Acido-Lenti-1 RNA: a 46-nucleotide RNA sequence from Phycisphaerae bacterium RAS2.
It is annotated as a small RNA.
Taxonomically the source falls in Phycisphaerae (Bacteria, Pseudomonadati, Planctomycetota).

[Rfam]
RNA sequence: CCACGGGCUGACGCCCGCGGCUACAUUCUGUCGCACCUUUGGUGCU
Numbered sequence: 001c002c003a004c005g006g007g008c009u010g011a012c013g014c015c016c017g018c019g020g021c022u023a024c025a026u027u028c029u030g031u032c033g034c035a036c037c038u039u040u041g042g043u044g045c046u
Stems, first nucleotide, its partner, number of pairs: 001020002004017005033045005